Shown here is a 109-nucleotide sequence from Paraburkholderia sediminicola, a member of the family "Burkholderia sRNA Bp1_Cand684_SIPHT". For this family Rfam cites "Computational discovery and RT-PCR validation of novel Burkholderia conserved and Burkholderia pseudomallei unique sRNAs" (Khoo et al., BMC Genomics, 2012). The family has 14 seed sequences and 176 matches in Rfam 15.1. The base pairs follow the family's consensus structure, which was predicted with RNAalifold. It scores 72 bits against the family's covariance model. Taxonomically the source falls in Paraburkholderia (Bacteria, Pseudomonadati, Pseudomonadota, Burkholderiales).
RNA sequence: AGAAAAGUAAGUGCCGCCCCGCACAGGGGCAACGCUAAUAGACCGCUAAGAAAGCAAGUUCAGCGAGAAACGCGGAUAACUGAUAAACACAGCGCCCCGCGCAACACCC
Numbered sequence: 001a002g003a004a005a006a007g008u009a010a011g012u013g014c015c016g017c018c019c020c021g022c023a024c025a026g027g028g029g030c031a032a033c034g035c036u037a038a039u040a041g042a043c044c045g046c047u048a049a050g051a052a053a054g055c056a057a058g059u060u061c062a063g064c065g066a067g068a069a070a071c072g073c074g075g076a077u078a079a080c081u082g083a084u085a086a087a088c089a090c091a092g093c094g095c096c097c098c099g100c101g102c103a104a105c106a107c108c109c
Stems, first nucleotide, its partner, number of pairs: 012074003016030005059066002093101003